The family of this 168-nucleotide sequence from Paenarthrobacter aurescens is "c-di-AMP riboswitch aptamer (ydaO/yuaA leader)". It scores 51 bits against the family's covariance model. The base pairs follow the family's consensus structure. The literature on the family includes a 2004 paper in Proc Natl Acad Sci U S A by Barrick et al., "New RNA motifs suggest an expanded scope for riboswitches in bacterial genetic control". NCBI's taxonomy places the organism under Bacteria, Bacillati, Actinomycetes, Micrococcales, Paenarthrobacter.
[Rfam]
RNA sequence: AUCCGUUCGCAGACAAACCUACGGCAGAGACGGGGAACCCAAUUUAGGCCGCUUUCGAGCGCGCCUUGGGGUGAAGUCACGAAGCUUCCGCUCAACAGCGGGGGAUAGUGGCCGGGUGACUCCCAUCCGAAUCCGACAGCUAACCUCGCAGGCAUCGGGAGAGGCUCU
Numbered sequence: 001a002u003c004c005g006u007u008c009g010c011a012g013a014c015a016a017a018c019c020u021a022c023g024g025c026a027g028a029g030a031c032g033g034g035g036a037a038c039c040c041a042a043u044u045u046a047g048g049c050c051g052c053u054u055u056c057g058a059g060c061g062c063g064c065c066u067u068g069g070g071g072u073g074a075a076g077u078c079a080c081g082a083a084g085c086u087u088c089c090g091c092u093c094a095a096c097a098g099c100g101g102g103g104g105a106u107a108g109u110g111g112c113c114g115g116g117u118g119a120c121u122c123c124c125a126u127c128c129g130a131a132u133c134c135g136a137c138a139g140c141u142a143a144c145c146u147c148g149c150a151g152g153c154a155u156c157g158g159g160a161g162a163g164g165c166u167c168u
Base pairs, nucleotide, nucleotide: 002028003027031148032147033146034145035144040068041067069134070133071132077111078110079109080108114128115127116126117125